[Rfam]
Notes
Shown here is a 266-nucleotide RNA sequence from Clytia hemisphaerica, a member of the family "Nuclear RNase P". Lineage of the source: Eukaryota > Hydrozoa > Hydroidolina > Clytiidae > Clytia. Rfam classes the family as a ribozyme. A search with the family's covariance model found it, with a score of 95 bits. Ribonuclease P (RNase P) is a ubiquitous endoribonuclease, found in archaea, bacteria and eukarya as well as chloroplasts and mitochondria.
RNA sequence: UGUGAUCGAACGUACAUCUAAGGAGCCUAGGGCUGCUGGGAAGGUCUGAGACAAAAGUCGCUCCCACCUUCUAACUGGAAGGCUACAGUAAUCUGUACUAGAUGGAUUUGAAAGGGAGGGUACAUAAAUGUUCGACGAAGUACAUUGAGUACUGAGAACGUAUUCACCCUUCAGAAUGGUCCAUGACUGGCUACUUGAGUGCGAUUGGUGUAGCAACAUUCCAACAGUGCAAUGUUGUAACUCAAUUCAGACUACUCUCGAUCACA
Number, nucleotide and partner (000 for none) at each position: 001u266002g265003u264004g263005a000006u000007c260008g259009a258010a000011c000012g000013u000014a000015c210016a209017u208018c207019u000020a000021a037022g036023g000024a034025g033026c032027c031028u000029a000030g000031g027032g026033c025034u024035g000036c022037u021038g000039g000040g000041a000042a000043g000044g000045u000046c250047u249048g248049a247050g246051a000052c000053a000054a000055a000056a188057g187058u186059c185060g000061c000062u000063c000064c000065c000066a000067c081068c000069u079070u078071c077072u000073a000074a000075c000076u000077g071078g070079a069080a000081g067082g098083c000084u097085a096086c095087a094088g093089u000090a000091a000092u000093c088094u087095g086096u085097a084098c082099u000100a000101g000102a184103u183104g182105g181106a180107u179108u178109u000110g000111a000112a000113a000114g000115g000116g000117a000118g169119g168120g167121u000122a000123c000124a000125u000126a000127a000128a000129u000130g000131u000132u000133c000134g000135a000136c000137g000138a000139a000140g000141u000142a000143c000144a000145u000146u000147g000148a000149g000150u000151a000152c000153u000154g000155a000156g000157a000158a000159c000160g000161u000162a000163u000164u000165c000166a000167c120168c119169c118170u000171u000172c000173a000174g000175a000176a000177u000178g108179g107180u106181c105182c104183a103184u102185g059186a058187c057188u056189g000190g000191c000192u000193a000194c000195u000196u000197g000198a000199g000200u000201g000202c000203g000204a000205u000206u000207g018208g017209u016210g015211u000212a000213g238214c237215a236216a235217c234218a233219u232220u000221c000222c000223a000224a000225c000226a000227g000228u000229g000230c000231a000232a219233u218234g217235u216236u215237g214238u213239a000240a000241c000242u000243c000244a000245a000246u050247u049248c048249a047250g046251a000252c000253u000254a000255c000256u000257c000258u009259c008260g007261a000262u000263c004264a003265c002266a001